[Rfam]
RNA sequence: AACCUCAACGGUAAUGGAUUCUGCCGGGCAUUACGCCGAACCGCUUCCUCGAUGAAGCUGAUGACUCCUACUCAACG
Numbered sequence: 001a002a003c004c005u006c007a008a009c010g011g012u013a014a015u016g017g018a019u020u021c022u023g024c025c026g027g028g029c030a031u032u033a034c035g036c037c038g039a040a041c042c043g044c045u046u047c048c049u050c051g052a053u054g055a056a057g058c059u060g061a062u063g064a065c066u067c068c069u070a071c072u073c074a075a076c077g
Base pairs, nucleotide, nucleotide: 010025011024012023013022016068017067018066020064021063043058044057045056046055

The family of this 77-nucleotide sequence from Ensifer sp. M14 is "Fluoride riboswitch aptamer (crcB RNA motif)". NCBI's taxonomy places the organism under Bacteria, Pseudomonadota, Alphaproteobacteria, Rhizobiaceae, Ensifer. Pairs were carried over by alignment from the consensus structure, which is taken from published work. The match comes from Rfam's covariance-model search (46 bits).